[Rfam]
RNA sequence: GAGUUUAUUCUGUUGGCGAGGUUAACCGGUAAGGGAAGCCGAAGCGAAAGCGACAAGUCCGUAGGUUUCGGCCAUGGGACGACGUAUUAAUAGUGCGUGUAGUCGACAGGAUAAGACCCGAAGCCCAGUGAUCUAUGCGUGGGCAGGCUGAAGGGUGACGAAAGUUGCGUGGAGGGCCGAAGCGGUAUUGAUAUGCAAAUCAUUCGUGUGACCUGCGUAUAGGGGUGAAAGGCCAAUCGAACUGGGCAUCAGCUGGUU
Numbered sequence: 001g002a003g004u005u006u007a008u009u010c011u012g013u014u015g016g017c018g019a020g021g022u023u024a025a026c027c028g029g030u031a032a033g034g035g036a037a038g039c040c041g042a043a044g045c046g047a048a049a050g051c052g053a054c055a056a057g058u059c060c061g062u063a064g065g066u067u068u069c070g071g072c073c074a075u076g077g078g079a080c081g082a083c084g085u086a087u088u089a090a091u092a093g094u095g096c097g098u099g100u101a102g103u104c105g106a107c108a109g110g111a112u113a114a115g116a117c118c119c120g121a122a123g124c125c126c127a128g129u130g131a132u133c134u135a136u137g138c139g140u141g142g143g144c145a146g147g148c149u150g151a152a153g154g155g156u157g158a159c160g161a162a163a164g165u166u167g168c169g170u171g172g173a174g175g176g177c178c179g180a181a182g183c184g185g186u187a188u189u190g191a192u193a194u195g196c197a198a199a200u201c202a203u204u205c206g207u208g209u210g211a212c213c214u215g216c217g218u219a220u221a222g223g224g225g226u227g228a229a230a231g232g233c234c235a236a237u238c239g240a241a242c243u244g245g246g247c248a249u250c251a252g253c254u255g256g257u258u
Stems, first nucleotide, its partner, number of pairs: 005114013020040004026034002044051002057080004064073003083097004117256002120253001124246006133222011144210001146178004153170001155168005182207004187203002190201002224234003